[Rfam]
RNA sequence: UUUCCUUCUUAUCCUGCACUCAGUUUGAUUAGUGGCUGUGAUGCCCGGAAAGGGAGGAGAAAGCAUCAUGAGGGAAUUCUAAUGCUCGACAUCUUCAGAAGACGUGGAGUUUAGCUGACUUCAAACAAUU
Numbered sequence: 001u002u003u004c005c006u007u008c009u010u011a012u013c014c015u016g017c018a019c020u021c022a023g024u025u026u027g028a029u030u031a032g033u034g035g036c037u038g039u040g041a042u043g044c045c046c047g048g049a050a051a052g053g054g055a056g057g058a059g060a061a062a063g064c065a066u067c068a069u070g071a072g073g074g075a076a077u078u079c080u081a082a083u084g085c086u087c088g089a090c091a092u093c094u095u096c097a098g099a100a101g102a103c104g105u106g107g108a109g110u111u112u113a114g115c116u117g118a119c120u121u122c123a124a125a126c127a128a129u130u
Stems, first nucleotide, its partner, number of pairs: 003058006012049003016044002019040001021038005069123004076116001078114001085109003088105001090104001092102003
Rfam assigns this 130-nucleotide RNA to the family "Caenorhabditis snoRNA ceN42". Rfam links the family to the GO terms nucleolus and RNA processing.